[Rfam]
RNA sequence: GGCUGGUCCGAUGGUAGUGGAUUACCAGAAGUUACUAACAUUAGUGUCACUAAAGUUGGUACACAACCUGCCACUGCUAAAUUUGACUAGCUUUAA
Numbered sequence: 001g002g003c004u005g006g007u008c009c010g011a012u013g014g015u016a017g018u019g020g021a022u023u024a025c026c027a028g029a030a031g032u033u034a035c036u037a038a039c040a041u042u043a044g045u046g047u048c049a050c051u052a053a054a055g056u057u058g059g060u061a062c063a064c065a066a067c068c069u070g071c072c073a074c075u076g077c078u079a080a081a082u083u084u085g086a087c088u089a090g091c092u093u094u095a096a
Stems, first nucleotide, its partner, number of pairs: 001092008010084002015079001016075005033061003037057002
Rfam assigns this 96-nucleotide RNA from Prolemur simus to the family "Y RNA". A search with the family's covariance model found it, with a score of 64 bits. Taxonomically the source falls in Prolemur (Eukaryota, Dipnotetrapodomorpha, Theria, Boreoeutheria).